The record is a 158-nucleotide RNA from Populus alba, which matches "MIR2912 microRNA precursor family" in Rfam. Pairs were carried over by alignment from the consensus structure, which was predicted with RNAalifold. It scores 94 bits against the family's covariance model. Its family is annotated with miRNA-mediated post-transcriptional gene silencing and RISC complex in the Gene Ontology. Rfam 15.1 lists 15,051 matches to the family in 15 species. Taxonomically the source falls in Populus (Eukaryota, Streptophytina, Gunneridae, Salicaceae).

RNA sequence: UCUAGAACUCUAGAUAUGGGCCAAACACUGAACAGUGUUCGGGCUGCAGGACAGAUUCGGACUUCUCCGUUGUUGCUAUAAUUUGGACUUGUAAACGGUCUUCUUAGAUCUUGUUGUCCACAUGAAAGUUGUAGGCCUAUAUCUUACUGAAUUUGUGU
Dot-bracket structure: .(..(((((..((((((((((.(.(.(((.....(((...(((..(.((((..((...((.((........(((...........)))........))))...))...)))).)..))).)))...)))).).).))))))))).)..)..)))..).